[Rfam]
A member of the RNA family "Glycine riboswitch aptamer" from Anoxybacter fermentans, 109 nucleotides long. It scores 68 bits against the family's covariance model. The organism belongs to Anoxybacter, within Bacteria. For this family Rfam cites "A glycine-dependent riboswitch that uses cooperative binding to control gene expression" (Mandal et al., Science, 2004).

RNA sequence: AUGAAGGAUGCGGGAGAGUCUCGCUAUGUGCGGGCACCGAAGGAGAAAUUUCCGGAGACCGGCCAGUCCCCGGGAAGAAGCUCUCAGGUCAAAGGACCGUAUCCUGACA
Dot-bracket structure: .....((((((((......((((.......)))).(((((..(((...(((((((..............)))))))....))))).))).......)))))))).....